This 77-nucleotide RNA sequence from Solanum commersonii belongs to the Rfam family "MIR8024 microRNA precursor family". The family has 2 seed sequences and 661 matches in Rfam 15.1. The base pairs follow the family's consensus structure, which was predicted with RNAalifold. It scores 74 bits against the family's covariance model. Its family is annotated with miRNA-mediated post-transcriptional gene silencing and RISC complex in the Gene Ontology. Taxonomically the source falls in Solanum (Eukaryota, Tracheophyta, Pentapetalae, Solanales).
Nucleotides: 077
Stems, first nucleotide, its partner, number of pairs: 001075003005071002009067006017059005025050004032044005
Number, partner (000 for none) and nucleotide at each position: 001075u002074u003073g004000u005071a006070g007000g008000a009067u010066u011065u012064g013063a014062a015000c016000a017059c018058u019057u020056c021055a022000a023000c024000u025050u026049g027048c028047a029000u030000a031000a032044u033043u034042g035041a036040a037000g038000a039000c040036u041035u042034c043033a044032a045000c046000u047028u048027g049026c050025a051000a052000a053000c054000u055021u056020g057019a058018a059017g060000a061000a062014u063013u064012u065011a066010a067009a068000g069000a070006c071005u072000u073003c074002a075001a076000c077000u